[Rfam]
RNA sequence: CGUAGCGGUUGCUCAGUAGUCAGUGUAGAUCCUGUGGGGCUGGCAGCAGCUACAUCUGGCUACUGGGUCUCCGCUGGCGGCC
Numbered sequence: 001c002g003u004a005g006c007g008g009u010u011g012c013u014c015a016g017u018a019g020u021c022a023g024u025g026u027a028g029a030u031c032c033u034g035u036g037g038g039g040c041u042g043g044c045a046g047c048a049g050c051u052a053c054a055u056c057u058g059g060c061u062a063c064u065g066g067g068u069c070u071c072c073g074c075u076g077g078c079g080g081c082c
Stems, first nucleotide, its partner, number of pairs: 013066006020059003023055006032049004

Annotation: The family of this 82-nucleotide RNA sequence from Labrus bergylta is "mir-221 microRNA precursor family". The literature on the family includes a 2008 paper in J Virol by Yao et al., "MicroRNA profile of Marek's disease virus-transformed T-cell line MSB-1: predominance of virus-encoded microRNAs". The base pairs follow the family's consensus structure, which was predicted with RNAalifold. Rfam 15.1 lists 1,797 matches to the family in 643 species.